[Rfam]
RNA sequence: AUAAAAAAAGGGUUGUAGGGGAUGAAAUCCCCUGCCGCCUUCAGGAAGAUGCUCAGACAGCUUUGCUGUCGUCGACGCUUUU
Numbered sequence: 001a002u003a004a005a006a007a008a009a010g011g012g013u014u015g016u017a018g019g020g021g022a023u024g025a026a027a028u029c030c031c032c033u034g035c036c037g038c039c040u041u042c043a044g045g046a047a048g049a050u051g052c053u054c055a056g057a058c059a060g061c062u063u064u065g066c067u068g069u070c071g072u073c074g075a076c077g078c079u080u081u082u
Stems, first nucleotide, its partner, number of pairs: 015035008056070005
A member of the RNA family "Clostridiales-2 RNA" from Geosporobacter ferrireducens, 82 nucleotides long. The match comes from Rfam's covariance-model search (70 bits). By type it is a small RNA. Pairs were carried over by alignment from the consensus structure, which is taken from published work.